[Rfam]
RNA: Group II catalytic intron D1-D4-4
RNA sequence: AUGUUGGUGAAAGUCCAACCUACGUAAUCGCCAAGGAGCGUAGUAGAUAUAUAACCAUGUAAUGGUGAGAACCAUUGUAUGAAGCGUUAUGAAAAUGUGCCGAAAGUGGUGCUAUCAAAUAUGCAGACCGCAACAUAA
Numbered sequence: 001a002u003g004u005u006g007g008u009g010a011a012a013g014u015c016c017a018a019c020c021u022a023c024g025u026a027a028u029c030g031c032c033a034a035g036g037a038g039c040g041u042a043g044u045a046g047a048u049a050u051a052u053a054a055c056c057a058u059g060u061a062a063u064g065g066u067g068a069g070a071a072c073c074a075u076u077g078u079a080u081g082a083a084g085c086g087u088u089a090u091g092a093a094a095a096u097g098u099g100c101c102g103a104a105a106g107u108g109g110u111g112c113u114a115u116c117a118a119a120u121a122u123g124c125a126g127a128c129c130g131c132a133a134c135a136u137a138a
Base pairs, nucleotide, nucleotide: 020043021042022041023040024039051090052089053088054087055086056081057080058079059078060077061076065072066071097112098111099110100109101108102107116130